[Rfam]
RNA sequence: GGUGGCAAGUGAUGUGAAUUUGAAAUCUUAUCCUACACACUGAACCAUGGUGUGGACUGAUAACUCCGCUUAUUAUCUGAUGCCACU
Number, nucleotide and partner (000 for none) at each position: 001g000002g000003u085004g084005g083006c082007a081008a000009g000010u000011g000012a000013u000014g000015u000016g000017a000018a000019u000020u000021u000022g000023a000024a000025a000026u000027c000028u000029u000030a000031u000032c000033c000034u000035a000036c000037a000038c000039a000040c000041u000042g000043a000044a000045c000046c000047a000048u000049g000050g000051u000052g000053u000054g000055g000056a000057c000058u000059g000060a000061u000062a000063a000064c000065u000066c000067c000068g000069c000070u000071u000072a000073u000074u000075a000076u000077c000078u000079g000080a000081u007082g006083c005084c004085a003086c000087u000
RNA: Small nucleolar RNA R16